[Rfam]
RNA: U5 spliceosomal RNA
Organism: Geotrypetes seraphini
RNA sequence: AAUCUCUGGUUUCUCUUCAGAUCGAAUAAAUCUUUCGCCUUUUACUAAAGAUUUCCGUGGAGAGGAACAUUAAUGAGUUUCAUUGAAUUUUUGACGGUCCUACUAUUAUUAGUAGGACU
Numbered sequence: 001a002a003u004c005u006c007u008g009g010u011u012u013c014u015c016u017u018c019a020g021a022u023c024g025a026a027u028a029a030a031u032c033u034u035u036c037g038c039c040u041u042u043u044a045c046u047a048a049a050g051a052u053u054u055c056c057g058u059g060g061a062g063a064g065g066a067a068c069a070u071u072a073a074u075g076a077g078u079u080u081c082a083u084u085g086a087a088u089u090u091u092u093g094a095c096g097g098u099c100c101u102a103c104u105a106u107u108a109u110u111a112g113u114a115g116g117a118c119u
Stems, first nucleotide, its partner, number of pairs: 004077003009068011028054008097118006